[Rfam]
RNA sequence: CCCUGACAACCACAUGGUGUGGUUGACUAACCCAGACAGGAGAAUAACAUG
Numbered sequence: 001c002c003c004u005g006a007c008a009a010c011c012a013c014a015u016g017g018u019g020u021g022g023u024u025g026a027c028u029a030a031c032c033c034a035g036a037c038a039g040g041a042g043a044a045u046a047a048c049a050u051g
Stems, first nucleotide, its partner, number of pairs: 002040004007025005
The record is a 51-nucleotide sequence, which matches "Mu-gpT-DE RNA" in Rfam. By type it is a small RNA.